RNA: GlmZ RNA activator of glmS mRNA
Organism: Klebsiella sp. RIT-PI-d
RNA sequence: GUAGAUGCUCAUUCCAUCUCUUAUGCUCGCCUCAGGGCCUCAUAAACCAGGAAUGAUGCAGAGCCACUUAUGGUGCUUAUCGUCCACCUGCCAGAUGUCGCUUCGGCCUCAUCAAACAUCAUGGACAUAACGUUGAGUGAAGCACCCAUUUAUGUUGUCAAACAGACCUGUUUUAACGCCUGCUCUGAACUCAGAGCAGGCGUUUUUUU
Numbered sequence: 001g002u003a004g005a006u007g008c009u010c011a012u013u014c015c016a017u018c019u020c021u022u023a024u025g026c027u028c029g030c031c032u033c034a035g036g037g038c039c040u041c042a043u044a045a046a047c048c049a050g051g052a053a054u055g056a057u058g059c060a061g062a063g064c065c066a067c068u069u070a071u072g073g074u075g076c077u078u079a080u081c082g083u084c085c086a087c088c089u090g091c092c093a094g095a096u097g098u099c100g101c102u103u104c105g106g107c108c109u110c111a112u113c114a115a116a117c118a119u120c121a122u123g124g125a126c127a128u129a130a131c132g133u134u135g136a137g138u139g140a141a142g143c144a145c146c147c148a149u150u151u152a153u154g155u156u157g158u159c160a161a162a163c164a165g166a167c168c169u170g171u172u173u174u175a176a177c178g179c180c181u182g183c184u185c186u187g188a189a190c191u192c193a194g195a196g197c198a199g200g201c202g203u204u205u206u207u208u209u
Stems, first nucleotide, its partner, number of pairs: 001064002006060003009056004015051001017050001019044001027037001072146007082126005094113004157167003175204011